[Rfam]
RNA: U2 spliceosomal RNA
RNA sequence: AUUGAUUUAUUUUUUUUUUAAAUAAAAAACUUUUUAUCUGUUCUUAUCAGCUUAAUAUCUGGUACGAUCCUCAUUGAGGAUCCAGUUAAUUAACCUGAUUUUUGAAAGUAGGUAGAAAUCUGGGGCUUGCUCCGGUUCCGCCACGAGUUGCCUUGGCAUUGCAGUACAGCCAAGCGCGGCUCUAUAAGC
Dot-bracket structure: .........(..(((....)))..)...................((((((........)))))).(((((((...)))))))............................(((.(((....((((....))))..))).)))..((((((.((((((...........))))))..)))))).......